The record is an 86-nucleotide RNA from Schinkia azotoformans, which matches "c-di-GMP-I riboswitch aptamer" in Rfam. About the family: GEMM was predicted in a large-scale screen for bacterial structured RNA regulatory elements. Gene Ontology term of the family: cyclic-di-GMP binding. It scores 88 bits against the family's covariance model. The family's consensus secondary structure is taken from published work.
RNA sequence: AAAGUUAAAUGGCAAACCUAUUGAAAAAUAGGGACGCAAAGCCACGGGCCUAACGUUAUUACAACUAUGGUAGCCGGGUUACCAAA
Numbered sequence: 001a002a003a004g005u006u007a008a009a010u011g012g013c014a015a016a017c018c019u020a021u022u023g024a025a026a027a028a029u030a031g032g033g034a035c036g037c038a039a040a041g042c043c044a045c046g047g048g049c050c051u052a053a054c055g056u057u058a059u060u061a062c063a064a065c066u067a068u069g070g071u072a073g074c075c076g077g078g079u080u081a082c083c084a085a086a
Base pairs, nucleotide, nucleotide: 012037013036017032018031019030020029021028022027040080041079042078043077045076046075047074048071049070050069055065056064057063